[Rfam]
RNA sequence: UGGCGCCCAAUGUGGGGCUCAAGAAUGGGGGAUCCAGUGAAGGACAUCGUUCGAGUGGCUGGCAGAAAGGAAAAGAAAAGAGGGAACGAUGUGGGAACCUGCUGUGUCUGCACCACUAGGGUAAGUGAACGGCGAUUAUGAGUCAAGAAAUGAGCCAACAUAAGAUGUUUGUUGAAGGACUAGGAAAGGCUCUCAAGGCACAAGGAGUAAAGGUAAAAAUUAAGCAUUUGUGUCAGUAUUUUGAUUAUAUUAAGGAAGCUUUCCCUU
Numbered sequence: 001u002g003g004c005g006c007c008c009a010a011u012g013u014g015g016g017g018c019u020c021a022a023g024a025a026u027g028g029g030g031g032a033u034c035c036a037g038u039g040a041a042g043g044a045c046a047u048c049g050u051u052c053g054a055g056u057g058g059c060u061g062g063c064a065g066a067a068a069g070g071a072a073a074a075g076a077a078a079a080g081a082g083g084g085a086a087c088g089a090u091g092u093g094g095g096a097a098c099c100u101g102c103u104g105u106g107u108c109u110g111c112a113c114c115a116c117u118a119g120g121g122u123a124a125g126u127g128a129a130c131g132g133c134g135a136u137u138a139u140g141a142g143u144c145a146a147g148a149a150a151u152g153a154g155c156c157a158a159c160a161u162a163a164g165a166u167g168u169u170u171g172u173u174g175a176a177g178g179a180c181u182a183g184g185a186a187a188g189g190c191u192c193u194c195a196a197g198g199c200a201c202a203a204g205g206a207g208u209a210a211a212g213g214u215a216a217a218a219a220u221u222a223a224g225c226a227u228u229u230g231u232g233u234c235a236g237u238a239u240u241u242u243g244a245u246u247a248u249a250u251u252a253a254g255g256a257a258g259c260u261u262u263c264c265c266u267u
Base pairs, nucleotide, nucleotide: 006031007030008029012026013025036047037045038044081117082116083114084113090106091105092104093103094102126145127144128143130142133140134139152193154190155189156188201243202242203241204240205239207237208236211229212228213227214226252267253266254265255264257262
RNA: Mason-Pfizer monkey virus packaging signal
Organism: Molossus molossus